[Rfam]
Small nucleolar RNA snoR74: a 127-nucleotide RNA from Ananas comosus. The base pairs follow the family's consensus structure, which was predicted with WAR. It scores 107 bits against the family's covariance model. Rfam links the family to the GO terms RNA processing and nucleolus.

RNA sequence: AAAAAAGCAGGGUUCUGUUUUCUUAAUGAACAGUUCUCUCGUAAACUUUAGGGAAAUCAUAUACAUUGUUAUUGGGUGAACCUUUGUACAGUAUGUGACAACAGGUUCAGUAAACAAUGGCACAUGU
Numbered sequence: 001a002a003a004a005a006a007g008c009a010g011g012g013u014u015c016u017g018u019u020u021u022c023u024u025a026a027u028g029a030a031c032a033g034u035u036c037u038c039u040c041g042u043a044a045a046c047u048u049u050a051g052g053g054a055a056a057u058c059a060u061a062u063a064c065a066u067u068g069u070u071a072u073u074g075g076g077u078g079a080a081c082c083u084u085u086g087u088a089c090a091g092u093a094u095g096u097g098a099c100a101a102c103a104g105g106u107u108c109a110g111u112a113a114a115c116a117a118u119g120g121c122a123c124a125u126g127u
Stems, first nucleotide, its partner, number of pairs: 005048003011037002015033003064119007077109007

For this family Rfam cites "Experimental RNomics: identification of 140 candidates for small non-messenger RNAs in the plant Arabidopsis thaliana" (Marker et al., Curr Biol, 2002). The source organism's lineage runs through Eukaryota, Petrosaviidae, Poales, Bromeliaceae and Ananas.